The record is a 439-nucleotide part of an RNA from Clostridium fungisolvens, which matches "Bacterial large subunit ribosomal RNA" in Rfam. Lineage of the source: Bacteria > Clostridia > Eubacteriales > Clostridiaceae > Clostridium. A search with the family's covariance model found it, with a score of 2940 bits.
RNA sequence: CUCCCCGAAAUAGCUUUAGGGCUAGCGUCGGAUAUGACUAAUGGAGGUAGAGCACUGAAUGGGCUAGGGGGCAUAUCGCUUACCGAACCUUAUCAAACUCCGAAUGCCAUAUAGUAUUAGUCCGGCAGUCAGACUGCGAAUGAUAAGAUCCGUAGUCAAAAGGGAAACAGCCCAGAUCGUCAGCUAAGGUCCCAAAGUAUAAGUUAAGUGGAAAAGGAUGUGGGAUUUCUAAGACAACUAGGAUGUUGGCUUAGAAGCAGCCACUCAUUAAAAGAGUGCGUAAUAGCUCACUAGUCGAGAGAUCCUGCGCCGAAGAUGUUCGGGGCUCAAACUUAUCACCGAAGCUACGGCUAGCAGAUUUAUCUGCUGGGGUAGGGGAGCGUCGUAAUCGGGCUGAAGUCGUACCGUAAGGAGCGGUGGACUGAUUACGAGUGAGUAU
Numbered sequence: 001c002u003c004c005c006c007g008a009a010a011u012a013g014c015u016u017u018a019g020g021g022c023u024a025g026c027g028u029c030g031g032a033u034a035u036g037a038c039u040a041a042u043g044g045a046g047g048u049a050g051a052g053c054a055c056u057g058a059a060u061g062g063g064c065u066a067g068g069g070g071g072c073a074u075a076u077c078g079c080u081u082a083c084c085g086a087a088c089c090u091u092a093u094c095a096a097a098c099u100c101c102g103a104a105u106g107c108c109a110u111a112u113a114g115u116a117u118u119a120g121u122c123c124g125g126c127a128g129u130c131a132g133a134c135u136g137c138g139a140a141u142g143a144u145a146a147g148a149u150c151c152g153u154a155g156u157c158a159a160a161a162g163g164g165a166a167a168c169a170g171c172c173c174a175g176a177u178c179g180u181c182a183g184c185u186a187a188g189g190u191c192c193c194a195a196a197g198u199a200u201a202a203g204u205u206a207a208g209u210g211g212a213a214a215a216g217g218a219u220g221u222g223g224g225a226u227u228u229c230u231a232a233g234a235c236a237a238c239u240a241g242g243a244u245g246u247u248g249g250c251u252u253a254g255a256a257g258c259a260g261c262c263a264c265u266c267a268u269u270a271a272a273a274g275a276g277u278g279c280g281u282a283a284u285a286g287c288u289c290a291c292u293a294g295u296c297g298a299g300a301g302a303u304c305c306u307g308c309g310c311c312g313a314a315g316a317u318g319u320u321c322g323g324g325g326c327u328c329a330a331a332c333u334u335a336u337c338a339c340c341g342a343a344g345c346u347a348c349g350g351c352u353a354g355c356a357g358a359u360u361u362a363u364c365u366g367c368u369g370g371g372g373u374a375g376g377g378g379a380g381c382g383u384c385g386u387a388a389u390c391g392g393g394c395u396g397a398a399g400u401c402g403u404a405c406c407g408u409a410a411g412g413a414g415c416g417g418u419g420g421a422c423u424g425a426u427u428a429c430g431a432g433u434g435a436g437u438a439u
Stems, first nucleotide, its partner, number of pairs: 001380006011024005026128001027126007035119001037115004041110004050101001051099002056095003061090003067084002069081004132157007140149002162173003177350004182346003188340003197337001199336006216311002220308010237295005243268003248262003269273001274289001278287002351370008381434001383431010399418005405412002